[Rfam]
RNA sequence: CCUGCUCCCGCCCCAGCAGCACACUGUGGUUUGUACGGUACUGUGGCCACGUCCAGACCACACUGUGGUGUUAGGGUGAGGGUGG
Numbered sequence: 001c002c003u004g005c006u007c008c009c010g011c012c013c014c015a016g017c018a019g020c021a022c023a024c025u026g027u028g029g030u031u032u033g034u035a036c037g038g039u040a041c042u043g044u045g046g047c048c049a050c051g052u053c054c055a056g057a058c059c060a061c062a063c064u065g066u067g068g069u070g071u072u073a074g075g076g077u078g079a080g081g082g083u084g085g
Base pairs, nucleotide, nucleotide: 012082013081014080015072016071017070018069020067021066022065023064025062026061027060028059029058030057031056032055033054035052036051037050038047039046
RNA: mir-497 microRNA precursor family
Organism: Nyctereutes procyonoides